[Rfam]
RNA sequence: GGAUCGAUGAUGACACCAUGUAUGCAUUCCUUGGAAAAUCUGAACAAAAUGAGUGAGAACCCUCUACCGUCUCCACAUCGAGUCUCAUGUCC
Number, nucleotide and partner (000 for none) at each position: 001g092002g091003a090004u089005c000006g000007a000008u000009g000010a000011u000012g000013a000014c000015a000016c000017c000018a000019u000020g000021u000022a000023u000024g000025c055026a054027u053028u052029c051030c000031u047032u046033g045034g000035a000036a000037a000038a000039u000040c000041u000042g000043a000044a000045c033046a032047a031048a000049a000050u000051g029052a028053g027054u026055g025056a000057g000058a000059a000060c000061c000062c000063u000064c000065u000066a000067c000068c000069g000070u000071c000072u000073c000074c000075a000076c000077a000078u000079c000080g000081a000082g000083u000084c000085u000086c000087a000088u000089g004090u003091c002092c001
The record is a 92-nucleotide sequence from Sousa chinensis, which matches "Small nucleolar RNA SNORD116" in Rfam. It is annotated as a C/D-box small nucleolar RNA. The match comes from Rfam's covariance-model search (77 bits). A reference for the family is Cavaille et al. (2000), "Identification of brain-specific and imprinted small nucleolar RNA genes exhibiting an unusual genomic organization", Proc Natl Acad Sci U S A.